[Rfam]
RNA sequence: CGGUGAGGUAGAGGUGCAAAUGAUAGGAGUAGCCAAUCGGAGAAUGACAACGAUGAUGAUUGGCAAAAGGAUUGUUUGCCGAAGUGUAAUAAGGGUCAAGCUUAUUAUAGCUGGUAUGUCUUUGAAUAAGGGAUGUACUGUCAUGCAUUGGACGCUGCAUGGAGAACUACUGAUCGA
Numbered sequence: 001c002g003g004u005g006a007g008g009u010a011g012a013g014g015u016g017c018a019a020a021u022g023a024u025a026g027g028a029g030u031a032g033c034c035a036a037u038c039g040g041a042g043a044a045u046g047a048c049a050a051c052g053a054u055g056a057u058g059a060u061u062g063g064c065a066a067a068a069g070g071a072u073u074g075u076u077u078g079c080c081g082a083a084g085u086g087u088a089a090u091a092a093g094g095g096u097c098a099a100g101c102u103u104a105u106u107a108u109a110g111c112u113g114g115u116a117u118g119u120c121u122u123u124g125a126a127u128a129a130g131g132g133a134u135g136u137a138c139u140g141u142c143a144u145g146c147a148u149u150g151g152a153c154g155c156u157g158c159a160u161g162g163a164g165a166a167c168u169a170c171u172g173a174u175c176g177a
Base pairs, nucleotide, nucleotide: 007171008170009169010168011167016079017078018077019076020075021074022073023072024071032064033063034062035061036060037059038058039057083112084111085110087107088106089105090104091103092102093101113139114138115137116136117135118134119133120132121131122130123129141162142161143160144159145158146157147156
About this RNA:
Rfam assigns this 177-nucleotide RNA from Lentibacillus populi to the family "Lysine riboswitch aptamer". Pairs were carried over by alignment from the consensus structure, which is taken from published work. The literature on the family includes a 2003 paper in Genes Dev by Sudarsan et al., "An mRNA structure in bacteria that controls gene expression by binding lysine".